[Rfam]
RNA: mir-204 microRNA precursor family
Organism: Echeneis naucrates
RNA sequence: AUGUGACUGUUGGGUUUCCCUUUGUCAUUCUAUGUCUGGACAUUUGUAAGGCAGAGAUGGCAAAGGGAGACUCGGCCGUCACUGUC
Numbered sequence: 001a002u003g004u005g006a007c008u009g010u011u012g013g014g015u016u017u018c019c020c021u022u023u024g025u026c027a028u029u030c031u032a033u034g035u036c037u038g039g040a041c042a043u044u045u046g047u048a049a050g051g052c053a054g055a056g057a058u059g060g061c062a063a064a065g066g067g068a069g070a071c072u073c074g075g076c077c078g079u080c081a082c083u084g085u086c
Base pairs, nucleotide, nucleotide: 017068018067019066020065021064022063024061025060028057029056031054034052035051036050037049